Rfam assigns this 119-nucleotide RNA from Arthrobacter sp. Edens01 to the family "SAM (S-adenosyl methionine) riboswitch aptamer". The literature on the family includes a 2008 paper in RNA by Weinberg et al., "The aptamer core of SAM-IV riboswitches mimics the ligand-binding site of SAM-I riboswitches". SAM-IV is a mRNA element that regulates gene expression via direct sensing of S-adenosylmethionine (SAM or AdoMet). SAM-IV riboswitches share conserved nucleotide positions with the previously described SAM-I riboswitches sequence analysis and molecular recognition experiments suggest that SAM-I and SAM-IV riboswitches share similar ligand binding sites, but have different scaffolds. The family's consensus secondary structure is taken from published work.
[Rfam]
RNA sequence: AAUCAAGAGCUCCAGCCAUCGGCCCUGGCCGGCUGGACAGCAACCCUCUCGUCGUAGCGGGGUGCUCCAGGUGAAGAUUCGGCCCUGCCGCGGACAUCCCCGCGGGGCAAGUACGGCGC
Numbered sequence: 001a002a003u004c005a006a007g008a009g010c011u012c013c014a015g016c017c018a019u020c021g022g023c024c025c026u027g028g029c030c031g032g033c034u035g036g037a038c039a040g041c042a043a044c045c046c047u048c049u050c051g052u053c054g055u056a057g058c059g060g061g062g063u064g065c066u067c068c069a070g071g072u073g074a075a076g077a078u079u080c081g082g083c084c085c086u087g088c089c090g091c092g093g094a095c096a097u098c099c100c101c102g103c104g105g106g107g108c109a110a111g112u113a114c115g116g117c118g119c
Base pairs, nucleotide, nucleotide: 001079002078003077004076009038011037012036013035014034015033016032021030022029039066040065041064044062045061046060048057049056082108083107084106085105086104087103088102090100

Lineage of the source: Bacteria > Bacillati > Actinomycetes > Micrococcaceae > Arthrobacter.